Shown here is a 310-nucleotide sequence from Croceibacter atlanticus, a member of the family "Bacterial RNase P class A". Lineage of the source: Bacteria > Flavobacteriales > Flavobacteriaceae > Croceibacter > Croceibacter atlanticus. Pairs were carried over by alignment from the consensus structure, which is taken from published work. It scores 209 bits against the family's covariance model. By type it is a ribozyme. Its family is annotated with ribonuclease P activity, dimeric ribonuclease P complex and tRNA processing in the Gene Ontology.

RNA sequence: AAAGCAGAUCGCCUUAUCGCUGUAUGAAUUUUCAUAGAGAGGAAAGUCCGGACACCAUAGCACAUUGUAGCGGCUAACAGCCGUCCGUUUUUAAGACGAGGACAAGUGCAACAGAAAGAAUGUACAGGUUAAGCUGUAGUGAAACCAGGUAAACUCUACAAGGUGCAAUGUCAUGUAAAUCAACGUUUGAGGGUUGUGCGCCCAAUGUUGAAGGGUAGGCAGCUAGAGAUUAUUGGCAACAAUAAUUCAAGAUAAAUGAUAAGGGCUUCUUUUAGGAGUACAGAAUCCGGCUUAUAGAUCUGCUUUUUUU
Numbered sequence: 001a002a003a004g005c006a007g008a009u010c011g012c013c014u015u016a017u018c019g020c021u022g023u024a025u026g027a028a029u030u031u032u033c034a035u036a037g038a039g040a041g042g043a044a045a046g047u048c049c050g051g052a053c054a055c056c057a058u059a060g061c062a063c064a065u066u067g068u069a070g071c072g073g074c075u076a077a078c079a080g081c082c083g084u085c086c087g088u089u090u091u092u093a094a095g096a097c098g099a100g101g102a103c104a105a106g107u108g109c110a111a112c113a114g115a116a117a118g119a120a121u122g123u124a125c126a127g128g129u130u131a132a133g134c135u136g137u138a139g140u141g142a143a144a145c146c147a148g149g150u151a152a153a154c155u156c157u158a159c160a161a162g163g164u165g166c167a168a169u170g171u172c173a174u175g176u177a178a179a180u181c182a183a184c185g186u187u188u189g190a191g192g193g194u195u196g197u198g199c200g201c202c203c204a205a206u207g208u209u210g211a212a213g214g215g216u217a218g219g220c221a222g223c224u225a226g227a228g229a230u231u232a233u234u235g236g237c238a239a240c241a242a243u244a245a246u247u248c249a250a251g252a253u254a255a256a257u258g259a260u261a262a263g264g265g266c267u268u269c270u271u272u273u274a275g276g277a278g279u280a281c282a283g284a285a286u287c288c289g290g291c292u293u294a295u296a297g298a299u300c301u302g303c304u305u306u307u308u309u310u
Base pairs, nucleotide, nucleotide: 001306002305003304004303005302006301007300008299009298010297011295012264013263014262015261016260017259018258020039021038023036024035025034026033027032044293045292046291048290049289050288051287052286053165054164055163056162060199061198062197063196065161066160067159068158069157070084071083072082073081074080085100086098087097088096089095101156102155106154107153108150109149123138125136126135127134169221170220171219172218180211181210182209183208184207191203192202193201194200228247229246230245231244232243233242234241235240